[Rfam]
Rfam assigns this 87-nucleotide RNA sequence from Mediterraneibacter butyricigenes to the family "ZMP/ZTP riboswitch aptamer (pfl RNA motif)". Gene Ontology terms of the family: one-carbon metabolic process and regulation of purine nucleotide biosynthetic process.
RNA sequence: CAGAGAUCAUAUGACUGACGGAAAAAGUGGAGCAGAAACCACGUGAAGUAUGAUCCGGAUAAGAAGCCGACCGUCUGGGCACAUUUU
Numbered sequence: 001c002a003g004a005g006a007u008c009a010u011a012u013g014a015c016u017g018a019c020g021g022a023a024a025a026a027g028u029g030g031a032g033c034a035g036a037a038a039c040c041a042c043g044u045g046a047a048g049u050a051u052g053a054u055c056c057g058g059a060u061a062a063g064a065a066g067c068c069g070a071c072c073g074u075c076u077g078g079g080c081a082c083a084u085u086u087u
Base pairs, nucleotide, nucleotide: 005055006054007053008052009051010050011049012048015045017075018074019073020072021071027042028041029040030039066080067079068078